The record is an 86-nucleotide sequence from Oncorhynchus kisutch, which matches "mir-726 microRNA precursor family" in Rfam. The family has 2 seed sequences and 131 matches in Rfam 15.1.
[Rfam]
RNA sequence: UUGUGGGUAAGUCCAGAAUUCCGCUAGUUUUGAACUAUUCAUGAUUGGUAAAAGUUCACCACUAGCAGAACUCGGAUUUACUUCAA
Numbered sequence: 001u002u003g004u005g006g007g008u009a010a011g012u013c014c015a016g017a018a019u020u021c022c023g024c025u026a027g028u029u030u031u032g033a034a035c036u037a038u039u040c041a042u043g044a045u046u047g048g049u050a051a052a053a054g055u056u057c058a059c060c061a062c063u064a065g066c067a068g069a070a071c072u073c074g075g076a077u078u079u080a081c082u083u084c085a086a
Stems, first nucleotide, its partner, number of pairs: 003084001005083007013075002016072001019070003023066006031058006038052002